[Rfam]
This 146-nucleotide RNA sequence from Oxobacter pfennigii belongs to the Rfam family "FMN riboswitch aptamer (RFN element)". A search with the family's covariance model found it, with a score of 106 bits. Pairs were carried over by alignment from the consensus structure, which is taken from published work.

RNA sequence: AUGAAUCUUCAGGGCAGGGUGAGCAAUUGAAUACUUACGUAUUAUUUUGCAUUUCCCGACCGGCGGUACAGCCCGCGAGCUUUUAAUUAAGCAGAUCCGGUUUAAUUCCGGAGCCGACAGUAAAGUCUGGAUGAAAGAAGGUUGUG
Numbered sequence: 001a002u003g004a005a006u007c008u009u010c011a012g013g014g015c016a017g018g019g020u021g022a023g024c025a026a027u028u029g030a031a032u033a034c035u036u037a038c039g040u041a042u043u044a045u046u047u048u049g050c051a052u053u054u055c056c057c058g059a060c061c062g063g064c065g066g067u068a069c070a071g072c073c074c075g076c077g078a079g080c081u082u083u084u085a086a087u088u089a090a091g092c093a094g095a096u097c098c099g100g101u102u103u104a105a106u107u108c109c110g111g112a113g114c115c116g117a118c119a120g121u122a123a124a125g126u127c128u129g130g131a132u133g134a135a136a137g138a139a140g141g142u143u144g145u146g
Stems, first nucleotide, its partner, number of pairs: 004143007017057003059126002061116002063076004071114002079092003096112005118129003
The organism belongs to Oxobacter, within Bacteria. The RFN element is a highly conserved domain that is found frequently in the 5'-untranslated regions of prokaryotic mRNAs that encode for flavin mononucleotide (FMN) biosynthesis and transport proteins.